[Rfam]
RNA sequence: GAAAUCUCCAUACGUAACCAGUCUCAUUGGCUGUCCACAUUUCCCCAACAUGUGGAUGGUCUCUUUAAGCUGGGAGACUGAGGUUUCUUAAACUCGGAACAACUCAAGUUCUGUCGUGGCAGCUAUAAUUCCAAGUUCCAGGACACUAUCGUCGUUCAUACAUAU
Numbered sequence: 001g002a003a004a005u006c007u008c009c010a011u012a013c014g015u016a017a018c019c020a021g022u023c024u025c026a027u028u029g030g031c032u033g034u035c036c037a038c039a040u041u042u043c044c045c046c047a048a049c050a051u052g053u054g055g056a057u058g059g060u061c062u063c064u065u066u067a068a069g070c071u072g073g074g075a076g077a078c079u080g081a082g083g084u085u086u087c088u089u090a091a092a093c094u095c096g097g098a099a100c101a102a103c104u105c106a107a108g109u110u111c112u113g114u115c116g117u118g119g120c121a122g123c124u125a126u127a128a129u130u131c132c133a134a135g136u137u138c139c140a141g142g143a144c145a146c147u148a149u150c151g152u153c154g155u156u157c158a159u160a161c162a163u164a165u
Stems, first nucleotide, its partner, number of pairs: 018073005030060010097157004102152002113144003117140003121137003

The record is a 165-nucleotide RNA sequence from Lachancea lanzarotensis, which matches "Small nucleolar RNA snR161" in Rfam. The family's RNA type in Rfam is H/ACA-box small nucleolar RNA. NCBI's taxonomy places the organism under Eukaryota, Dikarya, Saccharomycetes, Saccharomycetaceae, Lachancea. Its family is annotated with nucleolus and RNA processing in the Gene Ontology.